This 94-nucleotide sequence from Paspalum vaginatum belongs to the Rfam family "Small nucleolar RNA snoR26". A search with the family's covariance model found it, with a score of 56 bits. Its family is annotated with nucleolus and RNA processing in the Gene Ontology. By type it is a C/D-box small nucleolar RNA. On this family, see Brown et al., RNA 2001: "Multiple snoRNA gene clusters from Arabidopsis". Taxonomically the source falls in Paspalum (Eukaryota, Streptophyta, Tracheophyta, Petrosaviidae).
[Rfam]
RNA sequence: AGAGAAUCAGUGACAUUACAACCGUAUAUACUCAUCCUUUCAUUAUGAGCUGUGUGGUGAAGAAACCAUUGGGGAAUGUUUUUCUGAGAUGCUU
Numbered sequence: 001a002g003a004g005a006a007u008c009a010g011u012g013a014c015a016u017u018a019c020a021a022c023c024g025u026a027u028a029u030a031c032u033c034a035u036c037c038u039u040u041c042a043u044u045a046u047g048a049g050c051u052g053u054g055u056g057g058u059g060a061a062g063a064a065a066c067c068a069u070u071g072g073g074g075a076a077u078g079u080u081u082u083u084c085u086g087a088g089a090u091g092c093u094u
Stems, first nucleotide, its partner, number of pairs: 002094003006090003